Shown here is a 130-nucleotide sequence from Phyllotreta striolata, a member of the family "U11 spliceosomal RNA". Rfam classes the family as a spliceosomal small nuclear RNA. On this family, see Schneider et al., Proc Natl Acad Sci U S A 2004: "Identification of an evolutionarily divergent U11 small nuclear ribonucleoprotein particle in Drosophila". The base pairs follow the family's consensus structure, which is taken from published work.
RNA sequence: AAAAAGGGUGCUUGUUACUGGAUAACACACGAGUUCUUUGAGCUCGCGGGGUAUGGCGAUCAAGACAUACCCAGCACACAAUUUUUGUAAACGUGGGGCAGUUUCUUGGCAUUGCUUCAGAGACGCCCCC
Dot-bracket structure: .......((((((((((.....)))))(.((((((.....)))))).)(((((((..........))))))))))))..................((((.(((((.((((...)..))))))))))))..